RNA sequence: GACUUACGUAUACGUGGCAAGGUUAAGACAGAUAUAGUCGGAGCCGAAGGGAAACCAAGUCUGAAUAGGGCGAUUUUAGUCACGUAUAGUAAACCCGAAACCCGUGUGAGCUAUUCAUGGCCAGGCUGAAGGUGGGGUAACACCUACUGGAGGGCCGAACCAAUUGGAGCUGCAAGUCCACUGGAUGAGCUGUGAAUAGGAGUGAAAAGCUAAUCGAACCGGGAGAUAGCUGGCU
Numbered sequence: 001g002a003c004u005u006a007c008g009u010a011u012a013c014g015u016g017g018c019a020a021g022g023u024u025a026a027g028a029c030a031g032a033u034a035u036a037g038u039c040g041g042a043g044c045c046g047a048a049g050g051g052a053a054a055c056c057a058a059g060u061c062u063g064a065a066u067a068g069g070g071c072g073a074u075u076u077u078a079g080u081c082a083c084g085u086a087u088a089g090u091a092a093a094c095c096c097g098a099a100a101c102c103c104g105u106g107u108g109a110g111c112u113a114u115u116c117a118u119g120g121c122c123a124g125g126c127u128g129a130a131g132g133u134g135g136g137g138u139a140a141c142a143c144c145u146a147c148u149g150g151a152g153g154g155c156c157g158a159a160c161c162a163a164u165u166g167g168a169g170c171u172g173c174a175a176g177u178c179c180a181c182u183g184g185a186u187g188a189g190c191u192g193u194g195a196a197u198a199g200g201a202g203u204g205a206a207a208a209g210c211u212a213a214u215c216g217a218a219c220c221g222g223g224a225g226a227u228a229g230c231u232g233g234c235u
Base pairs, nucleotide, nucleotide: 005091006090007089009088010087011086012085013084014083015082016081017080018079021045022044023043024042027039028038029037049056050055059071060070061069062068094233095232097230101223102222103221104220106219107218111199112198113197114196115195116194117193118192119191120190121189122187124156125155126154127153131148132147133146134145135144136143160184161183162182165180166179167178168177201211202210203209
The record is a 235-nucleotide part of an RNA from Candidatus Gracilibacteria bacterium GN02-873, which matches "Bacterial large subunit ribosomal RNA" in Rfam. It scores 2579 bits against the family's covariance model.